RNA sequence: AGUCCCCUGCGGCGUUCGGGAUGGCUUAAUUUCCCAGAACCAAUAUUCGAUGCAAGGUUGCUGACAUUUAGCAUGUGGGCGUGUCGUGCUGGCUUGCCAGUGCGCCCGAAACAUGCGGUUGGCGACCACCUGAACCGUAAGGUUCGGGAUAAGCAGCCGGAUCGACGCUUGCGGGGGCAAA
Numbered sequence: 001a002g003u004c005c006c007c008u009g010c011g012g013c014g015u016u017c018g019g020g021a022u023g024g025c026u027u028a029a030u031u032u033c034c035c036a037g038a039a040c041c042a043a044u045a046u047u048c049g050a051u052g053c054a055a056g057g058u059u060g061c062u063g064a065c066a067u068u069u070a071g072c073a074u075g076u077g078g079g080c081g082u083g084u085c086g087u088g089c090u091g092g093c094u095u096g097c098c099a100g101u102g103c104g105c106c107c108g109a110a111a112c113a114u115g116c117g118g119u120u121g122g123c124g125a126c127c128a129c130c131u132g133a134a135c136c137g138u139a140a141g142g143u144u145c146g147g148g149a150u151a152a153g154c155a156g157c158c159g160g161a162u163c164g165a166c167g168c169u170u171g172c173g174g175g176g177g178c179a180a181a
Stems, first nucleotide, its partner, number of pairs: 004177008012168004017164003031149004037145005056127003060123006067117001071116006083105002089100004

Rfam assigns this 181-nucleotide sequence from Laribacter hongkongensis to the family "6S / SsrS RNA". The source organism's lineage runs through Bacteria, Pseudomonadati, Pseudomonadota, Aquaspirillaceae and Laribacter hongkongensis. Pairs were carried over by alignment from the consensus structure, which is taken from published work. For this family Rfam cites "6S RNA regulates E. coli RNA polymerase activity" (Wassarman and Storz, Cell, 2000). Rfam classes the family as a non-coding RNA gene.